[Rfam]
RNA sequence: GAGUGAACUAGGCCGGGCGGUUUGGCCCCGCCCCUCGCCCGCGACACGGUCAUCAGCGGGGGCCGAACACCGAGGAAGUCCGACCCGCCCGGGUCGGACCCCGGAAGCCGACAGAGAAACCUCGUCCUUCGGGGGCGACGGCUCGUCGUUCGCGCGCCUGCAGGGGCGUCGCGGCGCGAUUCGUCGGUGCGACCCCGUCAGGCACGGAAGUGAGCAGCGGAGCACCGGACGUCCGUCGCUCGAAGGGUCGCGGGGUGGAGGAGGCGACCGGGACUAUCCGGCCCGGAACGGUCGGGCGACCUCGGCCCGUUCACCA
Numbered sequence: 001g002a003g004u005g006a007a008c009u010a011g012g013c014c015g016g017g018c019g020g021u022u023u024g025g026c027c028c029c030g031c032c033c034c035u036c037g038c039c040c041g042c043g044a045c046a047c048g049g050u051c052a053u054c055a056g057c058g059g060g061g062g063c064c065g066a067a068c069a070c071c072g073a074g075g076a077a078g079u080c081c082g083a084c085c086c087g088c089c090c091g092g093g094u095c096g097g098a099c100c101c102c103g104g105a106a107g108c109c110g111a112c113a114g115a116g117a118a119a120c121c122u123c124g125u126c127c128u129u130c131g132g133g134g135g136c137g138a139c140g141g142c143u144c145g146u147c148g149u150u151c152g153c154g155c156g157c158c159u160g161c162a163g164g165g166g167c168g169u170c171g172c173g174g175c176g177c178g179a180u181u182c183g184u185c186g187g188u189g190c191g192a193c194c195c196c197g198u199c200a201g202g203c204a205c206g207g208a209a210g211u212g213a214g215c216a217g218c219g220g221a222g223c224a225c226c227g228g229a230c231g232u233c234c235g236u237c238g239c240u241c242g243a244a245g246g247g248u249c250g251c252g253g254g255g256u257g258g259a260g261g262a263g264g265c266g267a268c269c270g271g272g273a274c275u276a277u278c279c280g281g282c283c284c285g286g287a288a289c290g291g292u293c294g295g296g297c298g299a300c301c302u303c304g305g306c307c308c309g310u311u312c313a314c315c316a
Base pairs, nucleotide, nucleotide: 003314004313005312006311007310008309011064012063013062014061015033016032017031018030019029020028038060039059040058041057042056070305071304072303073302074301075300078297079296080295081294082293084290089286090285091284092283093282094281095280096279097278098277100272101271102270103269104268107265108264109263112260119256120255121254122253123252124251125250126246127245128244129243130242131241132240133239134237135236136235137234138232139231140230141181143179144178145177147176148175149174150173154169155168156167157166158165159164184228185227186226187225188224189223190222195220196219197218198217203212204211205210
Source information: This 316-nucleotide sequence from Halarchaeum rubridurum belongs to the Rfam family "Archaeal signal recognition particle RNA". Taxonomically the source falls in Halarchaeum (Archaea, Methanobacteriota, Halobacteriales, Halobacteriaceae). The match comes from Rfam's covariance-model search (168 bits).